The family of this 252-nucleotide sequence from Bacillus licheniformis is "BsrG". Its family is annotated with toxin activity and autolysis in the Gene Ontology. By type it is a small RNA. On this family, see Saito et al., Gene 2008: "Novel small RNA-encoding genes in the intergenic regions of Bacillus subtilis". About the family: bsrE, bsrG and bsrH pair through intermolecular interactions with antisense sRNAs. They form type I toxin/antitoxin system that includes an mRNA encoding for a short, toxic peptide (bsrE, bsrG and bsrH) and an antitoxin that is comprised of an antisense RNA. bsrG encodes a 39-amino-acid toxin, and the 180 nucleotide antisense sRNA called SR4 acts as the antitoxin (they overlap by 123 nucleotides). SR4 interaction with the 3'UTR of bsrG RNA promotes bsrG degradation and inhibits its translation. BsrG interferes with cell envelope biosynthesis, causes membrane invaginations and delocalisation of the cell wall synthesis and initiates autolysis. bsrE RNA encodes 30 amino-acid toxin peptide. Taxonomically the source falls in Bacillus licheniformis (Bacteria, Bacillota, Caryophanales, Bacillaceae).

RNA sequence: UGUACAAAGUUUCGGCUCACUCAAGGGAAGCUGGCUCAUCCCCUAUGAAAGGGGGUGAUGCUUAUGACGACAUUCGAAACAAUCUCGUUAAUGAUUGCUUUUGGCAUGUUAAUUGCCGUGUUGUCGAAGAAAGAAAAAUAGACUUCCCUUGAGCCCUGGUAAAGUUCAUAGGGAAAGUCUAUUUUAAAAUGACUGAGCCAAGCCCUUGUUGGGCCGCUUUGUACACUCGACUCGACUGUUGGCGCAGUCGGG
Numbered sequence: 001u002g003u004a005c006a007a008a009g010u011u012u013c014g015g016c017u018c019a020c021u022c023a024a025g026g027g028a029a030g031c032u033g034g035c036u037c038a039u040c041c042c043c044u045a046u047g048a049a050a051g052g053g054g055g056u057g058a059u060g061c062u063u064a065u066g067a068c069g070a071c072a073u074u075c076g077a078a079a080c081a082a083u084c085u086c087g088u089u090a091a092u093g094a095u096u097g098c099u100u101u102u103g104g105c106a107u108g109u110u111a112a113u114u115g116c117c118g119u120g121u122u123g124u125c126g127a128a129g130a131a132a133g134a135a136a137a138a139u140a141g142a143c144u145u146c147c148c149u150u151g152a153g154c155c156c157u158g159g160u161a162a163a164g165u166u167c168a169u170a171g172g173g174a175a176a177g178u179c180u181a182u183u184u185u186a187a188a189a190u191g192a193c194u195g196a197g198c199c200a201a202g203c204c205c206u207u208g209u210u211g212g213g214c215c216g217c218u219u220u221g222u223a224c225a226c227u228c229g230a231c232u233c234g235a236c237u238g239u240u241g242g243c244g245c246a247g248u249c250g251g252g
Base pairs, nucleotide, nucleotide: 001225002224003223004222005221007219008218009217014199015198016197017196018195020153021152022151023150024149025148026147027146031141032140036058037057038056040054041053042052043051044050066125067124068123069122070121071120072119080093081092103117104116105115106114164185202214203213204212231252232251233250234249235248236247237246238245239244